S15-Flavobacteria ribosomal protein leader: a 63-nucleotide sequence. By type it is a cis-regulatory leader. It is one of the family's seed sequences.

RNA sequence: UAUCUUUGCAGCUGUGUUAAAAGAAACACGUACAUAAAAAUCAUUAAAAACAAUAUUGGAAUG
Numbered sequence: 001u002a003u004c005u006u007u008g009c010a011g012c013u014g015u016g017u018u019a020a021a022a023g024a025a026a027c028a029c030g031u032a033c034a035u036a037a038a039a040a041u042c043a044u045u046a047a048a049a050a051c052a053a054u055a056u057u058g059g060a061a062u063g
Stems, first nucleotide, its partner, number of pairs: 014029005
For this family Rfam cites "Discovery of 20 novel ribosomal leader candidates in bacteria and archaea" (Eckert and Weinberg, BMC Microbiol, 2020).